Shown here is a 79-nucleotide RNA sequence from Gambusia affinis, a member of the family "mir-27 microRNA precursor family". On this family, see Yao et al., J Virol 2008: "MicroRNA profile of Marek's disease virus-transformed T-cell line MSB-1: predominance of virus-encoded microRNAs". It scores 68 bits against the family's covariance model.
RNA sequence: UGAAGACGCAGAACUUAGCUCAUCAGUGAGCAUCGGUACAAACAGGAUUUGUUCACAGUGGCUAAGUUCAGUGUCUGAC
Numbered sequence: 001u002g003a004a005g006a007c008g009c010a011g012a013a014c015u016u017a018g019c020u021c022a023u024c025a026g027u028g029a030g031c032a033u034c035g036g037u038a039c040a041a042a043c044a045g046g047a048u049u050u051g052u053u054c055a056c057a058g059u060g061g062c063u064a065a066g067u068u069c070a071g072u073g074u075c076u077g078a079c
Stems, first nucleotide, its partner, number of pairs: 011069010026056007